[Rfam]
RNA sequence: GGUCAUGAGUGUCGGCAGCAGGCCCUGGCUCGCUGACCGGCAACCUCCCGCGCGGCGGGUGCUCCAGGUGAGGCCGGCUGGGACGAUCCCGGUUCCCCAGGCC
Numbered sequence: 001g002g003u004c005a006u007g008a009g010u011g012u013c014g015g016c017a018g019c020a021g022g023c024c025c026u027g028g029c030u031c032g033c034u035g036a037c038c039g040g041c042a043a044c045c046u047c048c049c050g051c052g053c054g055g056c057g058g059g060u061g062c063u064c065c066a067g068g069u070g071a072g073g074c075c076g077g078c079u080g081g082g083a084c085g086a087u088c089c090c091g092g093u094u095c096c097c098c099a100g101g102c103c
Stems, first nucleotide, its partner, number of pairs: 001075004009038001011037006021030002039063003044059003048055002081103002
RNA: SAM (S-adenosyl methionine) riboswitch aptamer